[Rfam]
RNA sequence: AUGUCCUGAACGCUUAAUUCUUUACCCAAAGAAGCGGAGGACCCAUUUUCCUGGGGUGAAUCCCCCUGGAAACGAGGCGCCCUUGAUGCGUGGCGUUGUACCAGGUUUCCCGGGGGUAGGGUUAUCCUUUCAACCCGAACCCGUCAGCUAACUUCGUAAGCGUGGAAGGGAGGACAU
Numbered sequence: 001a002u003g004u005c006c007u008g009a010a011c012g013c014u015u016a017a018u019u020c021u022u023u024a025c026c027c028a029a030a031g032a033a034g035c036g037g038a039g040g041a042c043c044c045a046u047u048u049u050c051c052u053g054g055g056g057u058g059a060a061u062c063c064c065c066c067u068g069g070a071a072a073c074g075a076g077g078c079g080c081c082c083u084u085g086a087u088g089c090g091u092g093g094c095g096u097u098g099u100a101c102c103a104g105g106u107u108u109c110c111c112g113g114g115g116g117u118a119g120g121g122u123u124a125u126c127c128u129u130u131c132a133a134c135c136c137g138a139a140c141c142c143g144u145c146a147g148c149u150a151a152c153u154u155c156g157u158a159a160g161c162g163u164g165g166a167a168g169g170g171a172g173g174a175c176a177u
Stems, first nucleotide, its partner, number of pairs: 011162004018033005034157006044053002054142003062116004119136004
RNA: c-di-AMP riboswitch aptamer (ydaO/yuaA leader)
Organism: Desulfofundulus salinus